[Rfam]
Nucleotides: 133
Stems, first nucleotide, its partner, number of pairs: 002056004007051001009048002012045004016040002019037005068126001070124002074122004082118001084116002087113001088108001093102001
Number, partner (000 for none) and nucleotide at each position: 001000g002056g003055c004054c005053u006000u007051u008000g009048u010047g011000u012045u013044g014043c015042c016040c017039a018000c019037u020036c021035a022034u023033u024000c025000c026000u027000a028000c029000c030000c031000a032000g033023a034022g035021u036020g037019a038000a039017u040016g041000a042015g043014g044013u045012g046000u047010c048009a049000a050000a051007a052000c053005a054004g055003g056002c057000a058000a059000a060000c061000a062000g063000c064000a065000a066000u067000u068126c069000a070124u071123g072000c073000u074122c075121a076120a077119a078000c079000u080000g081000u082118g083000u084116u085115a086000a087113g088108g089000a090000g091000u092000u093102g094000a095000u096000u097000a098000u099000u100000u101000g102093c103000c104000u105000u106000u107000c108088u109000c110000c111000u112000c113087c114000c115085u116084g117000u118082u119077u120076u121075u122074g123071c124070a125000a126068g127000g128000a129000c130000a131000g132000g133000a

A member of the RNA family "Small nucleolar RNA SNORA13" from Piprites chloris, 133 nucleotides long.
Gene Ontology terms of the family: nucleolus and RNA processing.
The family's consensus secondary structure was predicted with CMfinder.
About the family: ACA13 is a member of the H/ACA class of snoRNA that guide the sites of modification of uridines to pseudouridines.
The family is grouped with related families in Rfam's "SNORA13 clan".